[Rfam]
RNA sequence: GAGUCUAGCGCGGGUGCGAGUCGGAGGGUGCAAGCCCGUGGGCGAAGUGAAAGCGAGUGUAAAAACGAGCAGUUUGGGGCGGCAUAAGAUCGUUGAUCUUAAGACCGACCCAGAGCAGUUGCGCUGGGACCCGAAAGAUGGUGAACUAUGCCGGAGUAGGGCAAAGCCAGAGGAAACUCUGGUGGAGGCUCGUAGCGGUGCUGACGUGCAAAUCGCUCGUCGAACUUGGGUAUAGGGGCGAAAGACUAAUCGAACCAUCUAGUAGCUGGGUG
Numbered sequence: 001g002a003g004u005c006u007a008g009c010g011c012g013g014g015u016g017c018g019a020g021u022c023g024g025a026g027g028g029u030g031c032a033a034g035c036c037c038g039u040g041g042g043c044g045a046a047g048u049g050a051a052a053g054c055g056a057g058u059g060u061a062a063a064a065a066c067g068a069g070c071a072g073u074u075u076g077g078g079g080c081g082g083c084a085u086a087a088g089a090u091c092g093u094u095g096a097u098c099u100u101a102a103g104a105c106c107g108a109c110c111c112a113g114a115g116c117a118g119u120u121g122c123g124c125u126g127g128g129a130c131c132c133g134a135a136a137g138a139u140g141g142u143g144a145a146c147u148a149u150g151c152c153g154g155a156g157u158a159g160g161g162c163a164a165a166g167c168c169a170g171a172g173g174a175a176a177c178u179c180u181g182g183u184g185g186a187g188g189c190u191c192g193u194a195g196c197g198g199u200g201c202u203g204a205c206g207u208g209c210a211a212a213u214c215g216c217u218c219g220u221c222g223a224a225c226u227u228g229g230g231u232a233u234a235g236g237g238g239c240g241a242a243a244g245a246c247u248a249a250u251c252g253a254a255c256c257a258u259c260u261a262g263u264a265g266c267u268g269g270g271u272g
Base pairs, nucleotide, nucleotide: 005127006126007125008124009123010122011121012120013119015117016116017115020043021042022041026037027036028035029034047054048053063075064074065073066072078110079109080107081106082105083103085101089097090096130269131268133266137259138258139257140256141255142254146235147234148233149232150231151230152229154227155226156225157223159191160190161189162188166183167182168181169180170179171178172177195220196219197218198217200216201215203214204213237247238246
The family of this 272-nucleotide part of an RNA from Chondrus crispus is "Eukaryotic large subunit ribosomal RNA". NCBI's taxonomy places the organism under Eukaryota, Rhodymeniophycidae, Gigartinales, Gigartinaceae, Chondrus.